[Rfam]
Nucleotides: 120
Stems, first nucleotide, its partner, number of pairs: 002119007013042001015041003021032003026089004043081004048077002052071001085112001090109006
Number, partner (000 for none) and nucleotide at each position: 001000g002119c003118c004117u005116u006115a007114u008113c009000a010000a011000g012000a013042g014000c015041g016040g017039c018000u019000g020000a021032g022031g023030g024000a025000a026089u027088a028087g029086g030023c031022c032021c033000u034000g035000u036000g037000a038000a039017g040016c041015c042013c043081g044080g045079c046078a047000a048077c049076c050000u051000a052071u053000a054000a055000g056000u057000u058000g059000g060000u061000u062000a063000u064000a065000u066000c067000a068000a069000c070000a071052a072000g073000u074000a075000a076049g077048g078046u079045g080044c081043u082000a083000a084000a085112u086029c087028c088027u089026a090109c091108a092107a093106c094105u095104c096000a097000u098000u099000g100000g101000c102000a103000u104095g105094g106093g107092u108091u109090g110000g111000a112085a113008g114007a115006u116005g117004a118003g119002g120000a
This 120-nucleotide sequence from Peptostreptococcaceae bacterium pGA-8 belongs to the Rfam family "SAM riboswitch aptamer (S box leader)".
A reference for the family is Daldrop and Lilley (2013), "The plasticity of a structural motif in RNA: structural polymorphism of a kink turn as a function of its environment", RNA.
Taxonomically the source falls in Peptostreptococcaceae (Bacteria, Bacillati, Bacillota, Clostridia).
It scores 77 bits against the family's covariance model.